This 102-nucleotide sequence from Podarcis muralis belongs to the Rfam family "mir-454 microRNA precursor family". The match comes from Rfam's covariance-model search (91 bits). NCBI's taxonomy places the organism under Eukaryota, Deuterostomia, Dipnotetrapodomorpha, Bifurcata, Podarcis. Rfam 15.1 lists 696 matches to the family in 601 species.
RNA sequence: AUAUGAUAACCUUGAGGGUAAGACCCUAUCAAUAUUGCCUCUGCUUCUGUGUUGGGUCCUAGUAGUGCAAUAUUGCUUAUAGGGUCUUUUCCUUGGGGGGGC
Numbered sequence: 001a002u003a004u005g006a007u008a009a010c011c012u013u014g015a016g017g018g019u020a021a022g023a024c025c026c027u028a029u030c031a032a033u034a035u036u037g038c039c040u041c042u043g044c045u046u047c048u049g050u051g052u053u054g055g056g057u058c059c060u061a062g063u064a065g066u067g068c069a070a071u072a073u074u075g076c077u078u079a080u081a082g083g084g085u086c087u088u089u090u091c092c093u094u095g096g097g098g099g100g101g102c
Stems, first nucleotide, its partner, number of pairs: 020088010030075009041065005